[Rfam]
RNA sequence: AUACAUUUUGUGUUUGGACCAACUGUUGCGUGAAAAAGGGUAA
Numbered sequence: 001a002u003a004c005a006u007u008u009u010g011u012g013u014u015u016g017g018a019c020c021a022a023c024u025g026u027u028g029c030g031u032g033a034a035a036a037a038g039g040g041u042a043a
Base pairs, nucleotide, nucleotide: 001015003013004012005011
RNA: algC RNA